A member of the RNA family "Plastid-clpP 5UTR RNA" from Zingiber officinale, 69 nucleotides long.
About the family: Plastid clpP is a non-coding RNA (ncRNA) recognised in plastids. It was found in the prime untranslated region (5UTR) of a protease complex subunit (clpP) in plastids, suggesting a posible cis-regulatory function.
The match comes from Rfam's covariance-model search (77 bits).
RNA sequence: AAUUCUGUUCAUAAGAGCAAAGAGAAGCGGAUCUAUUUUAUACCCAAUAAGUACCAAUAUGCAAUUGGA
Numbered sequence: 001a002a003u004u005c006u007g008u009u010c011a012u013a014a015g016a017g018c019a020a021a022g023a024g025a026a027g028c029g030g031a032u033c034u035a036u037u038u039u040a041u042a043c044c045c046a047a048u049a050a051g052u053a054c055c056a057a058u059a060u061g062c063a064a065u066u067g068g069a
Stems, first nucleotide, its partner, number of pairs: 003022002006019005043068002051060003
The organism belongs to Zingiber, within Eukaryota. The base pairs follow the family's consensus structure, which was predicted with LocARNA.